Rfam assigns this 74-nucleotide RNA sequence to the family "RT-6 RNA". It is annotated as a small RNA. Rfam's curators put it in the seed alignment.
[Rfam]
RNA sequence: UGCCUUAUGUAUUGACAUAAGGGUAAGGGAUUGUUGUCAACUGUCUGAUUAGCAUUCCAAUCUGGAAUCGAGUC
Numbered sequence: 001u002g003c004c005u006u007a008u009g010u011a012u013u014g015a016c017a018u019a020a021g022g023g024u025a026a027g028g029g030a031u032u033g034u035u036g037u038c039a040a041c042u043g044u045c046u047g048a049u050u051a052g053c054a055u056u057c058c059a060a061u062c063u064g065g066a067a068u069c070g071a072g073u074c
Base pairs, nucleotide, nucleotide: 003022004021005020006019007018008017009016010015054068055067056066057065058064
Dot-bracket structure: ..((((((((....))))))))...............................(((((.....)))))......